[Rfam]
This 46-nucleotide RNA from Odobenus rosmarus belongs to the Rfam family "Histone 3' UTR stem-loop". For this family Rfam cites "The sequence of the stem and flanking sequences at the 3' end of histone mRNA are critical determinants for the binding of the stem-loop binding protein" (Williams and Marzluff, Nucleic Acids Res, 1995). The base pairs follow the family's consensus structure, which is taken from published work. About the family: The mRNAs of metazoan histone genes lack a poly-A tail. 3' end processing occurs at a site between a highly conserved stem-loop (modelled by this family) and a purine rich region around 20 nts downstream (the histone downstream element, or HDE). The stem-loop is bound by a 31 kDa stem-loop binding protein (SLBP - also termed the histone hairpin binding protein, or HBP). Together with U7 snRNA binding of the HDE, SLBP binding nucleate s the formation of the processing complex. The histone 3' UTR stem-loop is also involved in nucleocytoplasmic transport of the mRNA, and in stability regulation and translation efficiency in the cytoplasm.

RNA sequence: CCAAAGGCUCUUUUCAGAGCCACCUCACUUGGCACAAGAGACUUGU
Numbered sequence: 001c002c003a004a005a006g007g008c009u010c011u012u013u014u015c016a017g018a019g020c021c022a023c024c025u026c027a028c029u030u031g032g033c034a035c036a037a038g039a040g041a042c043u044u045g046u
Stems, first nucleotide, its partner, number of pairs: 006021006
About this RNA
Rfam classes the family as a cis-regulatory element.